[Rfam]
RNA sequence: UCAGGAAGCAUCCAAAGGGAUCGCAUUGAUCCCACUUUGUAGCAAUUUUUUCUGUUUCUUUUUCUUUUUUUACCUUUUCAUGUUUUCUUUUUUACCCUCUUCUGCUAUGGAAUUUGGAUCAUGCCAUCUCUUUGGAUUCCUCCUG
Dot-bracket structure: .(((((.(.((((((((((((.((((.(((((...................................................................................))))))))).)))))))))))).).)))))
This 145-nucleotide RNA sequence from Cucumis melo belongs to the Rfam family "mir-393 microRNA precursor family". For this family Rfam cites "Role of microRNAs and other sRNAs of plants in their changing environments" (Kruszka et al., J Plant Physiol, 2012). Lineage of the source: Eukaryota > Magnoliopsida > Pentapetalae > rosids > Cucumis. Rfam 15.1 lists 1,052 matches to the family in 221 species.